Overview
Rfam assigns this 123-nucleotide RNA sequence from Hypnocyclicus thermotrophus to the family "SAM riboswitch aptamer (S box leader)". Gene Ontology term of the family: regulation of gene expression. Rfam's curators write: The SAM riboswitch is found upstream of a number of genes which code for proteins involved in methionine or cysteine biosynthesis in Gram-positive bacteria. The SAM riboswitch acts at the level of transcription termination control. The predicted structure consists of a complex stem-loop region followed by a single stem loop terminator region. An alternative and mutually exclusive form involves bases in the 3' segment of helix 1 with those in the 5' region of helix 5 to form a structure termed the anti-terminator form.
RNA sequence: UUCUUAUCAAGAGAAGCGGAGGGAACGGCCCUUAGAUGCUUCAGCAACCUACCAUUUAAGGUGUGGUGCUAAUUCCGGGAAUUAUUGAUUAAAAGUUUAAAUCAAAAAAUUCGAAGAUGAGAG
Numbered sequence: 001u002u003c004u005u006a007u008c009a010a011g012a013g014a015a016g017c018g019g020a021g022g023g024a025a026c027g028g029c030c031c032u033u034a035g036a037u038g039c040u041u042c043a044g045c046a047a048c049c050u051a052c053c054a055u056u057u058a059a060g061g062u063g064u065g066g067u068g069c070u071a072a073u074u075c076c077g078g079g080a081a082u083u084a085u086u087g088a089u090u091a092a093a094a095g096u097u098u099a100a101a102u103c104a105a106a107a108a109a110u111u112c113g114a115a116g117a118u119g120a121g122a123g
Stems, first nucleotide, its partner, number of pairs: 001123008013042005021031003026077003043070004048066002050063004074115001079112005